This 190-nucleotide RNA sequence from Muribaculaceae bacterium Isolate-102 belongs to the Rfam family "Bacteroidales-1 6S-Bacteroidales RNA suggested". A search with the family's covariance model found it, with a score of 126 bits. The literature on the family includes a 2020 paper in Nat Commun by Ryan et al., "A high-resolution transcriptome map identifies small RNA regulation of metabolism in the gut microbe Bacteroides thetaiotaomicron". Bacteroidales-1 was first reported in a comparative genomics-based approach of genome and metagenome sequences from Weinberg et al. 2010 In a high-resolution transcriptome map study of Bacteroides thetaiotaomicron, Ryan et al. 2020 report this sRNA as 6S RNA homologue of Bacteroides, in the study they obtain evidence of small product RNAs (pRNAs) related to 6S function.
RNA sequence: UACCACAUCAAAGUAGAUUGGGAAACUCAUCAAUUACAAAUGAAAUACCGAGACAAGCUUAGCCGACUAAUGGCGGGCCCCAUCCGCUCCUUGGAGCGGAGGCUAAUAACCCAGGCGGAUUACAAAGGUUGGCGAGCACUCAAAUCCUGUCAUUCGGAGUUUCAUCGCAUCCUUUGAUGUGGCUUUUAUA
Numbered sequence: 001u002a003c004c005a006c007a008u009c010a011a012a013g014u015a016g017a018u019u020g021g022g023a024a025a026c027u028c029a030u031c032a033a034u035u036a037c038a039a040a041u042g043a044a045a046u047a048c049c050g051a052g053a054c055a056a057g058c059u060u061a062g063c064c065g066a067c068u069a070a071u072g073g074c075g076g077g078c079c080c081c082a083u084c085c086g087c088u089c090c091u092u093g094g095a096g097c098g099g100a101g102g103c104u105a106a107u108a109a110c111c112c113a114g115g116c117g118g119a120u121u122a123c124a125a126a127g128g129u130u131g132g133c134g135a136g137c138a139c140u141c142a143a144a145u146c147c148u149g150u151c152a153u154u155c156g157g158a159g160u161u162u163c164a165u166c167g168c169a170u171c172c173u174u175u176g177a178u179g180u181g182g183c184u185u186u187u188a189u190a
Base pairs, nucleotide, nucleotide: 057137058136059135062133063132064131065130066129067128068127071124072123078118079117081115087096088095089094101111102110